[Rfam]
RNA sequence: GUGCCAUGAUGUCAAUUGUCAGCACCUCAUUCUGAAGAAAGAUUGUGUGGAGCCCUUCUGGGACUGUGCACC
Numbered sequence: 001g002u003g004c005c006a007u008g009a010u011g012u013c014a015a016u017u018g019u020c021a022g023c024a025c026c027u028c029a030u031u032c033u034g035a036a037g038a039a040a041g042a043u044u045g046u047g048u049g050g051a052g053c054c055c056u057u058c059u060g061g062g063a064c065u066g067u068g069c070a071c072c
Base pairs, nucleotide, nucleotide: 001071002070003069004068
The family of this 72-nucleotide RNA from Leptocoma aspasia is "Small nucleolar RNA SNORD63". It is annotated as a C/D-box small nucleolar RNA. For this family Rfam cites "Purified box C/D snoRNPs are able to reproduce site-specific 2'-O-methylation of target RNA in vitro" (Galardi et al., Mol Cell Biol, 2002). snoRNA U63 is found in both humans and mice.